[Rfam]
RNA sequence: UAUUGUACUCAGGGCGGGGUGAAAGUCCCCACCGGCGGUGAUUUUGCUAUUUGCAAAUAAGCCCGCGAGCACUUGUUCUAUUGAGCAAGGUUAGUUGAUUUGGUGUGAAUCCAAAGCCGACGGUAAUAGUCCGGAUGGGAGAGGCGAAA
Numbered sequence: 001u002a003u004u005g006u007a008c009u010c011a012g013g014g015c016g017g018g019g020u021g022a023a024a025g026u027c028c029c030c031a032c033c034g035g036c037g038g039u040g041a042u043u044u045u046g047c048u049a050u051u052u053g054c055a056a057a058u059a060a061g062c063c064c065g066c067g068a069g070c071a072c073u074u075g076u077u078c079u080a081u082u083g084a085g086c087a088a089g090g091u092u093a094g095u096u097g098a099u100u101u102g103g104u105g106u107g108a109a110u111c112c113a114a115a116g117c118c119g120a121c122g123g124u125a126a127u128a129g130u131c132c133g134g135a136u137g138g139g140a141g142a143g144g145c146g147a148a149a
Stems, first nucleotide, its partner, number of pairs: 003147004008143003017029003031130002033119002035066004061117002069095002099115005121133003
A member of the RNA family "FMN riboswitch aptamer (RFN element)" from Marinisporobacter balticus, 149 nucleotides long. The organism belongs to Marinisporobacter, within Bacteria.